Shown here is an 83-nucleotide RNA sequence from Podilymbus podiceps, a member of the family "Small nucleolar RNA SNORD45". It is annotated as a C/D-box small nucleolar RNA. The family's consensus secondary structure was predicted with PFOLD. It scores 52 bits against the family's covariance model. Rfam 15.1 lists 1,629 matches to the family in 521 species. Gene Ontology terms of the family: RNA processing and nucleolus. For this family Rfam cites "Site-specific ribose methylation of preribosomal RNA: a novel function for small nucleolar RNAs" (Kiss-Laszlo et al., Cell, 1996).

RNA sequence: GGUCUGUGAUGAGUUUGGGCAUGUAUUAUCAGCAUAUAAAUGUGACGAUUAUCGGUUUAGCUCUAGAUUUACUCUGAGACCUG
Numbered sequence: 001g002g003u004c005u006g007u008g009a010u011g012a013g014u015u016u017g018g019g020c021a022u023g024u025a026u027u028a029u030c031a032g033c034a035u036a037u038a039a040a041u042g043u044g045a046c047g048a049u050u051a052u053c054g055g056u057u058u059a060g061c062u063c064u065a066g067a068u069u070u071a072c073u074c075u076g077a078g079a080c081c082u083g
Stems, first nucleotide, its partner, number of pairs: 001081004